Notes:
Shown here is a 92-nucleotide RNA sequence from Carlito syrichta, a member of the family "Small nucleolar RNA SNORD116". The family's RNA type in Rfam is C/D-box small nucleolar RNA. It scores 73 bits against the family's covariance model. Taxonomically the source falls in Carlito (Eukaryota, Deuterostomia, Vertebrata, Haplorrhini).
RNA sequence: UGAUUGGUGAUGACUCCCAAAUACAUGUUCCUCAGAAAUCUGAACAAAAUGAGUGUACACUCUAUACUGUCAUCUUCAUCAAACUGAGGUCC
Numbered sequence: 001u002g003a004u005u006g007g008u009g010a011u012g013a014c015u016c017c018c019a020a021a022u023a024c025a026u027g028u029u030c031c032u033c034a035g036a037a038a039u040c041u042g043a044a045c046a047a048a049a050u051g052a053g054u055g056u057a058c059a060c061u062c063u064a065u066a067c068u069g070u071c072a073u074c075u076u077c078a079u080c081a082a083a084c085u086g087a088g089g090u091c092c
Stems, first nucleotide, its partner, number of pairs: 002091004026055005032047001